Shown here is a 377-nucleotide sequence from Labedella populi, a member of the family "Bacterial RNase P class A". The family's consensus secondary structure is taken from published work.
[Rfam]
RNA sequence: CGGGUCGGCAAGACGGUCGCGUCGGUCGCACGGGUCCGCCCGUCGACCGCCGAGGAACGUCCGGGCUCCUCAGAGCAGGGCGGUGGGUAACACCCACCCGGGGUAACCCGCGAGACAGUGCAACAGAGAACAGACCGCCACCGGCGUCCGCGCCGGGGGUAAGGGUGAAACGGUGGUGUAAGAGACCACCAGCGACCGGGGUGACCCGGUCGGCUCGGUAAACCUCGCCCGGAGCAAGGUCAGACAGGGGACCAUGGGGCUGCUCGUCCCGUCCCCGGGUAGACCGCUAGAGGGUUGUGGUGACGCAACCCCGAGAGAGAUGGCCGUCAGCGGCAUCCGUGCCGCGACAGAACCCGGCGUAUCAGCUGGCCCGUUCA
Numbered sequence: 001c002g003g004g005u006c007g008g009c010a011a012g013a014c015g016g017u018c019g020c021g022u023c024g025g026u027c028g029c030a031c032g033g034g035u036c037c038g039c040c041c042g043u044c045g046a047c048c049g050c051c052g053a054g055g056a057a058c059g060u061c062c063g064g065g066c067u068c069c070u071c072a073g074a075g076c077a078g079g080g081c082g083g084u085g086g087g088u089a090a091c092a093c094c095c096a097c098c099c100g101g102g103g104u105a106a107c108c109c110g111c112g113a114g115a116c117a118g119u120g121c122a123a124c125a126g127a128g129a130a131c132a133g134a135c136c137g138c139c140a141c142c143g144g145c146g147u148c149c150g151c152g153c154c155g156g157g158g159g160u161a162a163g164g165g166u167g168a169a170a171c172g173g174u175g176g177u178g179u180a181a182g183a184g185a186c187c188a189c190c191a192g193c194g195a196c197c198g199g200g201g202u203g204a205c206c207c208g209g210u211c212g213g214c215u216c217g218g219u220a221a222a223c224c225u226c227g228c229c230c231g232g233a234g235c236a237a238g239g240u241c242a243g244a245c246a247g248g249g250g251a252c253c254a255u256g257g258g259g260c261u262g263c264u265c266g267u268c269c270c271g272u273c274c275c276c277g278g279g280u281a282g283a284c285c286g287c288u289a290g291a292g293g294g295u296u297g298u299g300g301u302g303a304c305g306c307a308a309c310c311c312c313g314a315g316a317g318a319g320a321u322g323g324c325c326g327u328c329a330g331c332g333g334c335a336u337c338c339g340u341g342c343c344g345c346g347a348c349a350g351a352a353c354c355c356g357g358c359g360u361a362u363c364a365g366c367u368g369g370c371c372c373g374u375u376c377a
Stems, first nucleotide, its partner, number of pairs: 001373009011362001012328007020052002023049006057360003061357005066234004073265004078230005083097005098112001099110004113225002118223002120219002135164002137160003141156006172190006192214001193212008238285004247276006256270005292311008